[Rfam]
RNA sequence: UCGCUGCAUCGCUUUAUGGCUUUUUAUUCCUAUGUGAUUGUGAUACAGUGGCACGUAGGGAUGAAAGCCAUGAACUGUUCAGUGA
Numbered sequence: 001u002c003g004c005u006g007c008a009u010c011g012c013u014u015u016a017u018g019g020c021u022u023u024u025u026a027u028u029c030c031u032a033u034g035u036g037a038u039u040g041u042g043a044u045a046c047a048g049u050g051g052c053a054c055g056u057a058g059g060g061a062u063g064a065a066a067g068c069c070a071u072g073a074a075c076u077g078u079u080c081a082g083u084g085a
Stems, first nucleotide, its partner, number of pairs: 002084005010077002013074011026062011
mir-135 microRNA precursor family: an 85-nucleotide RNA sequence from Chiloscyllium punctatum. It scores 64 bits against the family's covariance model. Rfam links the family to the GO terms RISC complex and gene silencing by miRNA. On this family, see Lagos-Quintana et al., Curr Biol 2002: "Identification of tissue-specific microRNAs from mouse". Lineage of the source: Eukaryota > Bilateria > Gnathostomata > Chondrichthyes > Chiloscyllium.